RNA sequence: CCUGGCCCGGUUCACGCCGCCGAGCACCUCGGCGAUCCGGCCCA
Numbered sequence: 001c002c003u004g005g006c007c008c009g010g011u012u013c014a015c016g017c018c019g020c021c022g023a024g025c026a027c028c029u030c031g032g033c034g035a036u037c038c039g040g041c042c043c044a
Stems, first nucleotide, its partner, number of pairs: 003044003007040004015034005022027001
Shown here is a 44-nucleotide RNA from Nonomuraea solani, a member of the family "L31-Actinobacteria ribosomal protein leader". Taxonomically the source falls in Nonomuraea (Bacteria, Bacillati, Actinomycetota, Streptosporangiales). Clan: Ribosomal Protein L31 Leader clan.